[Rfam]
Shown here is a 44-nucleotide RNA sequence from Aureibacillus halotolerans, a member of the family "PreQ1 (pre queuosine) riboswitch aptamer". Gene Ontology term of the family: queuosine biosynthetic process. A reference for the family is Jenkins et al. (2011), "Comparison of a preQ1 riboswitch aptamer in metabolite-bound and free states with implications for gene regulation", J Biol Chem.
RNA sequence: ACGGGAGAGGUUCUAGAGCACCCUCUAUAAAAAACUAAGGAAGG
Numbered sequence: 001a002c003g004g005g006a007g008a009g010g011u012u013c014u015a016g017a018g019c020a021c022c023c024u025c026u027a028u029a030a031a032a033a034a035c036u037a038a039g040g041a042a043g044g
Stems, first nucleotide, its partner, number of pairs: 006026005016036001
A search with the family's covariance model found it, with a score of 46 bits. Pairs were carried over by alignment from the consensus structure. From the family's description: This family is a bacterial riboswitch that binds to the metabolite preQ1, an intermediate in the biosynthesis of the modified nucleoside queuosine from GTP. One example of this riboswitch is located in the leader of the Bacillus subtilis ykvJKLM (queCDEF) operon which encodes four genes necessary for queuosine production. Taxonomically the source falls in Aureibacillus (Bacteria, Bacilli, Caryophanales, Bacillaceae).